[Rfam]
About this RNA:
This 226-nucleotide sequence from Brevibacillus brevis belongs to the Rfam family "T-box leader". The source organism's lineage runs through Bacteria, Bacillota, Bacilli, Paenibacillaceae and Brevibacillus brevis. Uncharged tRNA acts as the effector for transcription antitermination of genes in the T-box leader family. T-boxes are found upstream of many aminoacyl-tRNA synthetase genes and some amino acid biosynthetic genes usually in Gram-positive bacteria. The anticodon of a specific tRNA base pairs to a specifier sequence within the T-box motif, and the NCCA acceptor tail of the tRNA base pairs to a conserved bulge in the T-box antiterminator hairpin. It is annotated as a cis-regulatory leader.
RNA sequence: GAGAAUGCGAUGAUGAGAACAAGUACUUCACAAGAGCCAGGCCUAGAGAGUCGGUGGUAGGUGCGAACCGAUCCGGUUAUGUGAGGGAAUCCAUCUCGGAGUGGCAAAGGAACAACAACUUUGUCCGGAACCGUCCCGUUAUGACGGAAGAGUGGACAUAUGCAUGAAGGAUUACUGCAUGUGUCAACGAGGGUGGCAACGCGGGUAUACAACACUCGUCCCUUAC
Number, nucleotide and partner (000 for none) at each position: 001g000002a000003g000004a000005a000006u000007g102008c101009g000010a000011u000012g000013a000014u000015g097016a096017g095018a094019a000020c000021a000022a000023g000024u000025a000026c086027u085028u084029c083030a082031c081032a000033a000034g000035a000036g000037c000038c000039a000040g074041g073042c000043c000044u000045a000046g000047a000048g000049a000050g072051u071052c070053g069054g068055u067056g000057g000058u000059a000060g000061g000062u000063g000064c000065g000066a000067a055068c054069c053070g052071a051072u050073c041074c040075g000076g000077u000078u000079a000080u000081g031082u030083g029084a028085g027086g026087g000088a000089a000090u000091c000092c000093a000094u018095c017096u016097c015098g000099g000100a000101g008102u007103g125104g124105c123106a122107a121108a120109g119110g000111a000112a000113c000114a000115a000116c000117a000118a000119c109120u108121u107122u106123g105124u104125c103126c138127g137128g136129a000130a000131c000132c000133g000134u000135c000136c128137c127138g126139u000140u000141a000142u000143g000144a000145c000146g000147g000148a000149a000150g000151a000152g000153u000154g000155g185156a184157c183158a182159u181160a180161u179162g178163c177164a176165u000166g000167a000168a000169g000170g000171a000172u000173u000174a000175c000176u164177g163178c162179a161180u160181g159182u158183g157184u156185c155186a000187a000188c000189g000190a223191g222192g221193g220194u000195g000196g000197c000198a000199a000200c000201g219202c218203g217204g216205g215206u000207a000208u000209a000210c000211a000212a000213c000214a000215c205216u204217c203218g202219u201220c193221c192222c191223u190224u000225a000226c000